[Rfam]
The family of this 91-nucleotide RNA sequence from Fusobacterium varium is "Selenocysteine transfer RNA".

RNA sequence: GGUGGCGGAGGAAAACUGGUGUUUUCAGCAGUCUUCAAAACUGUCGUGGUGGCUGAAAAGUCAUUGGUAGGUUCGAUUCCUACACGCUACC
Numbered sequence: 001g002g003u004g005g006c007g008g009a010g011g012a013a014a015a016c017u018g019g020u021g022u023u024u025u026c027a028g029c030a031g032u033c034u035u036c037a038a039a040a041c042u043g044u045c046g047u048g049g050u051g052g053c054u055g056a057a058a059a060g061u062c063a064u065u066g067g068u069a070g071g072u073u074c075g076a077u078u079c080c081u082a083c084a085c086g087c088u089a090c091c
Stems, first nucleotide, its partner, number of pairs: 001091007008083001011026006028044005048065005068082004

Taxonomically the source falls in Fusobacterium varium (Bacteria, Fusobacteriota, Fusobacteriaceae, Fusobacterium). A search with the family's covariance model found it, with a score of 68 bits. Pairs were carried over by alignment from the consensus structure, which is taken from published work.